[Rfam]
RNA sequence: GAGGGUGGGCCCCUCGGAAUCGGGUUGCAGGACCUGGUUUCAAACUACGUUGAGCUGCUGUGGUUAAGAGUCAUGGUGGUGAGCGUCAAUGAAAAGGCGUCCAUUAAGACGUCAUGU
Numbered sequence: 001g002a003g004g005g006u007g008g009g010c011c012c013c014u015c016g017g018a019a020u021c022g023g024g025u026u027g028c029a030g031g032a033c034c035u036g037g038u039u040u041c042a043a044a045c046u047a048c049g050u051u052g053a054g055c056u057g058c059u060g061u062g063g064u065u066a067a068g069a070g071u072c073a074u075g076g077u078g079g080u081g082a083g084c085g086u087c088a089a090u091g092a093a094a095a096g097g098c099g100u101c102c103a104u105u106a107a108g109a110c111g112u113c114a115u116g117u
Base pairs, nucleotide, nucleotide: 001015002014003013004012005011016041017040018039019038020037021036023034024033025032026031046116048091049090050089051088052087053086054080055079057077058076059075061073062072063071064070096113097112098111099110100109101108